[Rfam]
This 52-nucleotide RNA from Tranquillimonas rosea belongs to the Rfam family "Guanidine-II riboswitch aptamer (mini-ykkC)". Its family is annotated with regulation of gene expression in the Gene Ontology. Taxonomically the source falls in Tranquillimonas (Bacteria, Alphaproteobacteria, Rhodobacterales, Roseobacteraceae). A search with the family's covariance model found it, with a score of 34 bits.

RNA sequence: GGCGGAGGACGACCUCCCCCGUUUCGGGACUGCACCGACCAGGACGGCCUGG
Numbered sequence: 001g002g003c004g005g006a007g008g009a010c011g012a013c014c015u016c017c018c019c020c021g022u023u024u025c026g027g028g029a030c031u032g033c034a035c036c037g038a039c040c041a042g043g044a045c046g047g048c049c050u051g052g
Stems, first nucleotide, its partner, number of pairs: 001020002004017005039052005